This 505-nucleotide RNA sequence from Leishmania major belongs to the Rfam family "Heat shock protein 83 3' UTR".
Pairs were carried over by alignment from the consensus structure, which was predicted with mfold.
RNA sequence: GCCGGUACGGCAGCGCGCACACGCACACAGUGCACCGAUAUCUUCUCCGACUUGCGCGCACGCUGCAUUCCGCAAAGCUGCAGCGCGGCGCUCUGGAGGCCUUGUCCCGCGCACUGCUCUUUGCAUAGCCCGACGUGAGAGCACCUCGCGGGCAGUGCUGCGGCCUCGUGUGGGAUCGAGUCACGACUGAAGGAGAGCGAAUCUCAGGGCUCGGUGUGGAGAAGGAGGUGUCAAGUAGCCCCGUUGCGGAGAGCGUCUCAGACCCAUCACAGUGCACCUCACAGACCUCCCCGCCUCCCCGGCCACUUGCCACUCACUACCCCCUCCCCUUCCCUUCUCCCCCGUACCCCCCCGCCCCAAUCUCUCUCUCUCUCUCUUUCUCGCAGCCUCUGCCCUCUCACCGCCGCGCCGGGCGCACCGGCGCUCGUUUCCGUUUUUUUUUGUGUUUUUGUUUUGUUUUGCGCGUUCCAACACACAGCCGGAUCGUUUUUCUUCUCUCUAACGA
Dot-bracket structure: .((((...(((.(((.((((..((.(.(((.(...((..........)).)))).).))..(((((.(...(((....))).).)))))(((((((.((...(((.(((((....(((........)))....)))).).)))))))).)))).))))))).)))..(((((((((((.(.((.(((.((((..(((((......(((((..((..(((((((((((..(.(((((.(((.....(((..(((..(.(..((....(........)..)))..)..)))..)))......))).))))).)....(............................................)............))))))))).))..))..)))))....(((..((.......))..)))))))).))))...................))).)).)...)).))))).))))....)))).(((((............)))))

Rfam 15.1 lists 33 matches to the family in 10 species.
By type it is a cis-regulatory element.
Lineage of the source: Eukaryota > Trypanosomatidae > Leishmania > Leishmania major species complex > Leishmania major.